[Rfam]
RNA: transfer-messenger RNA
RNA sequence: GGGGGUGUUCCGGAUUCGACCUUUAGUUGGAUCGUCUGGCUGCAUGUCGAGGAUGAUGGUUGGCCUCGUAAAUCUCUCCAUCAAAAACACAAAUGGCACACACGAAGAAAUGCCUCUAGCUGCUUAAUAUAGCGCUACGUUCCCCCGCCGAUACUCGCUAGGCGGUGCGGAGCGACGACCAGCGAGCAUAGCCGAGAACGGGCGCCUCUUGCGCCUCGGCCGUACUUCAUCGAGAGGCUGGCCUCAAAAGUAGCGCGGUUUCGUCGCGACCCAGAGGCGAGACUAAAAACGAAGACAAACAUGUAGACGCCUUACGCGAAAGCUAGAGGGACGCGGGUUCGACUCCCGCCACCUCCACCA
Number, nucleotide and partner (000 for none) at each position: 001g356002g355003g354004g353005g352006u351007g350008u000009u000010c000011c000012g000013g000014a000015u000016u000017c000018g000019a000020c329021c328022u327023u326024u325025a324026g323027u322028u321029g000030g000031a000032u318033c316034g315035u314036c000037u000038g311039g310040c309041u000042g000043c303044a302045u301046g300047u299048c068049g067050a066051g065052g064053a000054u083055g082056a081057u080058g079059g078060u000061u000062g000063g000064c052065c051066u050067c049068g048069u000070a000071a000072a000073u000074c000075u000076c000077u000078c059079c058080a057081u056082c055083a054084a000085a000086a000087a000088c000089a000090c000091a000092a000093a000094u000095g000096g000097c000098a000099c000100a000101c000102a000103c000104g000105a000106a000107g000108a000109a000110a000111u000112g000113c000114c000115u000116c000117u137118a136119g135120c000121u134122g133123c132124u000125u000126a000127a000128u000129a000130u000131a000132g123133c122134g121135c119136u118137a117138c174139g173140u172141u171142c170143c169144c000145c000146c165147g163148c162149c161150g000151a000152u000153a000154c186155u185156c184157g183158c182159u181160a000161g149162g148163c147164g000165g146166u000167g000168c000169g143170g142171a141172g140173c139174g138175a000176c000177g000178a000179c000180c000181a159182g158183c157184g156185a155186g154187c000188a000189u222190a000191g220192c219193c218194g217195a216196g215197a000198a000199c000200g000201g000202g000203c000204g000205c000206c237207u236208c000209u234210u000211g000212c000213g000214c000215c196216u195217c194218g193219g192220c191221c000222g189223u000224a000225c000226u000227u000228c000229a000230u000231c000232g000233a000234g209235a000236g207237g206238c000239u000240g000241g278242c277243c276244u275245c274246a000247a000248a000249a000250g000251u000252a000253g267254c266255g265256c000257g000258g000259u295260u294261u293262c000263g290264u289265c255266g254267c253268g000269a000270c000271c000272c000273a000274g245275a244276g243277g242278c241279g000280a000281g000282a000283c000284u000285a000286a000287a000288a000289a264290c263291g000292a000293a261294g260295a259296c000297a000298a000299a047300c046301a045302u044303g043304u000305a000306g000307a000308c000309g040310c039311c038312u000313u000314a035315c034316g033317c000318g032319a000320a000321a028322g027323c026324u025325a024326g023327a022328g021329g020330g000331a000332c000333g349334c348335g347336g346337g345338u000339u000340c000341g000342a000343c000344u000345c337346c336347c335348g334349c333350c007351a006352c005353c004354u003355c002356c001357a000358c000359c000360a000